[Rfam]
RNA sequence: UCCAGUGGUAGUCAGCUGUCCAGAGCAGUCCUGUGCCUGUGAUAGUGUUACACUGCUGGGAGAUGAACAUCAGUCAUUCCUUCUGGCUGCUGUUGUCACCGUUCUGGAGGCAGCUGGUGCCAAAAGGAAAUGGCAUUGUGCUUCCCUGAGAGUGCACUAAAGAUUUGCCUUCCCUCUUUAGUGCUAGUCUGGAAGCAUACACA
Dot-bracket structure: (((((((((.((..(((((((((.............))).))))))...)))))))))))............((((((((((.(((.((((........................))))))).)))))).))))...((((((((........(((.((((((...........)))))).)))......)))))))).....
Numbered sequence: 001u002c003c004a005g006u007g008g009u010a011g012u013c014a015g016c017u018g019u020c021c022a023g024a025g026c027a028g029u030c031c032u033g034u035g036c037c038u039g040u041g042a043u044a045g046u047g048u049u050a051c052a053c054u055g056c057u058g059g060g061a062g063a064u065g066a067a068c069a070u071c072a073g074u075c076a077u078u079c080c081u082u083c084u085g086g087c088u089g090c091u092g093u094u095g096u097c098a099c100c101g102u103u104c105u106g107g108a109g110g111c112a113g114c115u116g117g118u119g120c121c122a123a124a125a126g127g128a129a130a131u132g133g134c135a136u137u138g139u140g141c142u143u144c145c146c147u148g149a150g151a152g153u154g155c156a157c158u159a160a161a162g163a164u165u166u167g168c169c170u171u172c173c174c175u176c177u178u179u180a181g182u183g184c185u186a187g188u189c190u191g192g193a194a195g196c197a198u199a200c201a202c203a
Stems, first nucleotide, its partner, number of pairs: 001060009011051002015046006021039003073134004077129006084122003088119004138198008154184003158180006

About this RNA:
Small nucleolar RNA SNORA74: a 203-nucleotide RNA from Phalacrocorax carbo. U19 belongs to the H/ACA class of snoRNAs. snoRNAs bind a number of proteins (including dyskerin, Gar1p and Nop10p in the case of the H/ACA class) to form snoRNP complexes. The family has 24 seed sequences and 1,348 matches in Rfam 15.1. Its family is annotated with RNA processing and nucleolus in the Gene Ontology. Rfam classes the family as an H/ACA-box small nucleolar RNA.